[Rfam]
RNA: Bacterial small subunit ribosomal RNA, nucleotides 938 to 1532
RNA sequence: UGACGGGGGCCUGCACAAGCGGUGGAGUAUGUGGCUCAAUUCGAUGCAACGCGAAGAACCUUACCUGGCCUUGACAUGCAAGUAGUAGAAGGGUGAAAGCCUGACGAGGUAGCAAUACCAGCUUGCACAGGUGCUGCAUGGCUGUCGUCAGCUCGUGUCGUGAGAUGUUGGGUUAAGUCCCGCAACGAGCGCAACCCCUGUGUCCUGUUGCCACCCCUACGAGAGUAGGGAGCACUCUGGACAGACUGCCUCGCUUAAACGAGGAGGAAGGUGGGGAUGACGUCAAGUCAGUAUGGCCCUUACGGCCAGGGCUGCACACGUACUACAAUGCCCGGCACAAAGGGAAGCAAGACCGCGAGGUGGAGCAAAUCCCCUAAAACCGGGCCCAGUUCAGAUUGAAGGCUGCAACUCGCCUUCAUGAAGCUGGAAUCGCUAGUAAUGGCGCAUCAGCUACGGCGCCGUGAAUACGUUCCCAGGCCUUGUACACACCGCCCGUCACAUCAUGAAAGCCGUUUGUACCCGAAGUCACCGUGCCAACCGCAAGGGGGCAGGUGCCGAAGGUAUGGAUGGUGAUUGGGAUGAAGUCGUAACAAGG
Numbered sequence: 001u002g003a004c005g006g007g008g009g010c011c012u013g014c015a016c017a018a019g020c021g022g023u024g025g026a027g028u029a030u031g032u033g034g035c036u037c038a039a040u041u042c043g044a045u046g047c048a049a050c051g052c053g054a055a056g057a058a059c060c061u062u063a064c065c066u067g068g069c070c071u072u073g074a075c076a077u078g079c080a081a082g083u084a085g086u087a088g089a090a091g092g093g094u095g096a097a098a099g100c101c102u103g104a105c106g107a108g109g110u111a112g113c114a115a116u117a118c119c120a121g122c123u124u125g126c127a128c129a130g131g132u133g134c135u136g137c138a139u140g141g142c143u144g145u146c147g148u149c150a151g152c153u154c155g156u157g158u159c160g161u162g163a164g165a166u167g168u169u170g171g172g173u174u175a176a177g178u179c180c181c182g183c184a185a186c187g188a189g190c191g192c193a194a195c196c197c198c199u200g201u202g203u204c205c206u207g208u209u210g211c212c213a214c215c216c217c218u219a220c221g222a223g224a225g226u227a228g229g230g231a232g233c234a235c236u237c238u239g240g241a242c243a244g245a246c247u248g249c250c251u252c253g254c255u256u257a258a259a260c261g262a263g264g265a266g267g268a269a270g271g272u273g274g275g276g277a278u279g280a281c282g283u284c285a286a287g288u289c290a291g292u293a294u295g296g297c298c299c300u301u302a303c304g305g306c307c308a309g310g311g312c313u314g315c316a317c318a319c320g321u322a323c324u325a326c327a328a329u330g331c332c333c334g335g336c337a338c339a340a341a342g343g344g345a346a347g348c349a350a351g352a353c354c355g356c357g358a359g360g361u362g363g364a365g366c367a368a369a370u371c372c373c374c375u376a377a378a379a380c381c382g383g384g385c386c387c388a389g390u391u392c393a394g395a396u397u398g399a400a401g402g403c404u405g406c407a408a409c410u411c412g413c414c415u416u417c418a419u420g421a422a423g424c425u426g427g428a429a430u431c432g433c434u435a436g437u438a439a440u441g442g443c444g445c446a447u448c449a450g451c452u453a454c455g456g457c458g459c460c461g462u463g464a465a466u467a468c469g470u471u472c473c474c475a476g477g478c479c480u481u482g483u484a485c486a487c488a489c490c491g492c493c494c495g496u497c498a499c500a501u502c503a504u505g506a507a508a509g510c511c512g513u514u515u516g517u518a519c520c521c522g523a524a525g526u527c528a529c530c531g532u533g534c535c536a537a538c539c540g541c542a543a544g545g546g547g548g549c550a551g552g553u554g555c556c557g558a559a560g561g562u563a564u565g566g567a568u569g570g571u572g573a574u575u576g577g578g579a580u581g582a583a584g585u586c587g588u589a590a591c592a593a594g595g
Base pairs, nucleotide, nucleotide: 001486002485003483004482005481007480008479009478010477011476012475013474015470016469019433020432021431022430023429024326026324027323028322029321030320031319032318033317034315035314040055041054042053043052064310065309066308067307068306069305070304077127078126080124081123082122083121088105091102092101093100094099108119109118110117111116130299131298133297134296135295136294139293140292141288142287143286144284146282147281151190152189153188154187155186156185157166158165159164169182170181171180172179196276197275198274199273201243202242203241204240205239207237211232215230216229217228218227219226246267247266249264250263251262252261253260330385331384332383333382334381335380342373343372344371347366348365352361353360354359392423397418398417399416400415401414402413403412439462440461441460442459443458444457445456489594491591494587495586499581500580501579502578504576505575506574509571510570511569512568513567514566515565516564517563518562519561520560525556527554528553529552530551532550533549534548535547538545539544